Shown here is a 125-nucleotide RNA from Microcebus murinus, a member of the family "Small Cajal body specific RNA 23".
RNA sequence: GUGCUCACUAAGGCUCGGUCCUCUCCAAGUGGUCCGGACCUGCCCUCCAUGAGCAAGAGAAACAGGACUGGCUUGGGAGUGUCCUGCUCGAGUGGACAUGGGACACUACAGUUUUCAGUACAACA
Dot-bracket structure: ..(((((....(((..((((....((....))....)))).))).....)))))..........(.(((((.(((..(((((((((.((....)).)..)))))))).)))...))))).)....

For this family Rfam cites "Cajal body-specific small nuclear RNAs: a novel class of 2'-O-methylation and pseudouridylation guide RNAs" (Darzacq et al., EMBO J, 2002).
It is annotated as a small Cajal body RNA.
scaRNAs are a specific class of small nuclear RNAs which localise to the Cajal bodies and guide the modification of RNA polymerase II transcribed spliceosomal RNAs U1, U2, U4, U5 and U12. ACA11 belongs to the H/ACA box class of guide RNAs as it has the predicted hairpin-hinge-hairpin-tail structure,the conserved H/ACA-box motifs and is found associated with GAR1. H/ACA snRNAs are predicted to guide the modification of uridines to pseudouridines in substrate RNAs however, no target RNA has been identified for scaRNA ACA11.
The base pairs follow the family's consensus structure, which was predicted with RNAfold.
NCBI's taxonomy places the organism under Eukaryota, Chordata, Craniata, Eutheria, Microcebus.
Gene Ontology terms of the family: Cajal body, RNA processing and nucleolus.